RNA sequence: UGAUGAGAAAUCUCCGGAAUCGCUGUACCACAUUGAUGAUUCCCUCGAACCCUUGUAUACCUGAUGACUGUGGCUGUUCAGU
Numbered sequence: 001u002g003a004u005g006a007g008a009a010a011u012c013u014c015c016g017g018a019a020u021c022g023c024u025g026u027a028c029c030a031c032a033u034u035g036a037u038g039a040u041u042c043c044c045u046c047g048a049a050c051c052c053u054u055g056u057a058u059a060c061c062u063g064a065u066g067a068c069u070g071u072g073g074c075u076g077u078u079c080a081g082u
Stems, first nucleotide, its partner, number of pairs: 002082001004080003
RNA: Small nucleolar RNA MBII-202
Organism: Steatornis caripensis